[Rfam]
RNA: U5 spliceosomal RNA
Organism: Acer saccharum
RNA sequence: AGCCGUGCGGUGAGCACAAAGCGAACUAUUCUUUCGCCUUUUACUAAAGAAUACCGUGUGUUCGACGCUUAUAGCGGCAUACGCUUAUUUUUGGAGGGGUAUUUCAAAGAAAUGCCC
Numbered sequence: 001a002g003c004c005g006u007g008c009g010g011u012g013a014g015c016a017c018a019a020a021g022c023g024a025a026c027u028a029u030u031c032u033u034u035c036g037c038c039u040u041u042u043a044c045u046a047a048a049g050a051a052u053a054c055c056g057u058g059u060g061u062u063c064g065a066c067g068c069u070u071a072u073a074g075c076g077g078c079a080u081a082c083g084c085u086u087a088u089u090u091u092u093g094g095a096g097g098g099g100u101a102u103u104u105c106a107a108a109g110a111a112a113u114g115c116c117c
Stems, first nucleotide, its partner, number of pairs: 003077004008067002011064008027053008097117006